[Rfam]
Purine riboswitch aptamer: a 103-nucleotide RNA sequence from Paenibacillus darwinianus.
The match comes from Rfam's covariance-model search (71 bits).
Its family is annotated with purine nucleobase biosynthetic process in the Gene Ontology.
The family's consensus secondary structure is taken from published work.

RNA sequence: CGCGAAGGGUGCGAAACCACUCGUAUAAUACCGGGAAUAUGGCCCGGAAGUUUCUACCCGGGAACCGUUAAAUUUUCGGACUACGAGCCAUGAUAAAGAAACA
Numbered sequence: 001c002g003c004g005a006a007g008g009g010u011g012c013g014a015a016a017c018c019a020c021u022c023g024u025a026u027a028a029u030a031c032c033g034g035g036a037a038u039a040u041g042g043c044c045c046g047g048a049a050g051u052u053u054c055u056a057c058c059c060g061g062g063a064a065c066c067g068u069u070a071a072a073u074u075u076u077c078g079g080a081c082u083a084c085g086a087g088c089c090a091u092g093a094u095a096a097a098g099a100a101a102c103a
Stems, first nucleotide, its partner, number of pairs: 020087006029049001031047005058079007